RNA sequence: AAACGGCGCAAAAAUCAUAAUCGACCUUCGUCGAUUUUUUUAUUUUAAAGUUAAAGAAACGGCUCGAGAUAUUCCGAGCAGUUAUAAAAAUUAAUUUGUCUUGAAUAUUGCUAUUACAUUUUUGAAAAGUGAUGUAGAUUUAUAACCAUAAUUUUUGGAUUUACAUUGACGAUACUGUAUCGAAAGAAAAAGGCAAUCUAU
Numbered sequence: 001a002a003a004c005g006g007c008g009c010a011a012a013a014a015u016c017a018u019a020a021u022c023g024a025c026c027u028u029c030g031u032c033g034a035u036u037u038u039u040u041u042a043u044u045u046u047a048a049a050g051u052u053a054a055a056g057a058a059a060c061g062g063c064u065c066g067a068g069a070u071a072u073u074c075c076g077a078g079c080a081g082u083u084a085u086a087a088a089a090a091u092u093a094a095u096u097u098g099u100c101u102u103g104a105a106u107a108u109u110g111c112u113a114u115u116a117c118a119u120u121u122u123u124g125a126a127a128a129g130u131g132a133u134g135u136a137g138a139u140u141u142a143u144a145a146c147c148a149u150a151a152u153u154u155u156u157g158g159a160u161u162u163a164c165a166u167u168g169a170c171g172a173u174a175c176u177g178u179a180u181c182g183a184a185a186g187a188a189a190a191a192g193g194c195a196a197u198c199u200a201u
Base pairs, nucleotide, nucleotide: 008194009193017038019036020035021034022033023032024031025030056075058073059072061070063068078117080115081114082113091104092103093102094101122159123158125155127154128153129152130151131147134146135145166183167182168181169180171178
Enterococcus sRNA A1: a 201-nucleotide RNA from Staphylococcus gallinarum. The base pairs follow the family's consensus structure, which was predicted with RNAfold. The literature on the family includes a 2015 paper in RNA by Innocenti et al., "Whole-genome mapping of 5' RNA ends in bacteria by tagged sequencing: a comprehensive view in Enterococcus faecalis". The family's RNA type in Rfam is small RNA. It scores 147 bits against the family's covariance model. Lineage of the source: Bacteria > Bacilli > Caryophanales > Staphylococcaceae > Staphylococcus.